[Rfam]
Nucleotides: 158
Stems, first nucleotide, its partner, number of pairs: 002085003006081003010078002024074003028070002031067001033065001099152001100149001103145004109139005115133001116131002119128002
Number, partner (000 for none) and nucleotide at each position: 001000u002085u003084g004083u005000c006081c007080u008079g009000g010078c011077c012000u013000c014000u015000g016000u017000u018000u019000u020000u021000u022000c023000u024074a025073c026072u027000c028070c029069c030000c031067u032000c033065u034000g035000u036000u037000u038000u039000u040000u041000u042000g043000g044000c045000c046000c047000c048000u049000g050000c051000u052000g053000u054000g055000c056000u057000c058000a059000g060000u061000u062000g063000u064000a065033a066000a067031a068000a069029g070028g071000u072026a073025g074024u075000a076000u077011g078010g079008c080007a081006g082000u083004a084003c085002a086000c087000a088000c089000a090000g091000c092000a093000g094000u095000c096000u097000c098000c099152u100149u101000c102000a103145g104144u105143u106142u107000a108000g109139g110138a111137g112136g113135g114000c115133u116131g117130u118000c119128u120127u121000u122000a123000g124000a125000a126000u127120a128119g129000a130117g131116c132000u133115g134000u135113c136112u137111u138110u139109u140000a141000a142106a143105g144104g145103c146000a147000c148000a149100a150000g151000a152099g153000u154000a155000c156000a157000g158000u

Small Cajal body specific RNA 11: a 158-nucleotide RNA sequence from Callithrix jacchus. The family has 24 seed sequences and 853 matches in Rfam 15.1. Rfam classes the family as a small Cajal body RNA. On this family, see Darzacq et al., EMBO J 2002: "Cajal body-specific small nuclear RNAs: a novel class of 2'-O-methylation and pseudouridylation guide RNAs". scaRNAs are a specific class of small nuclear RNAs which localise to the Cajal bodies and guide the modification of RNA polymerase II transcribed spliceosomal RNAs U1, U2, U4, U5 and U12. It scores 78 bits against the family's covariance model. Taxonomically the source falls in Callithrix (Eukaryota, Metazoa, Mammalia, Euarchontoglires).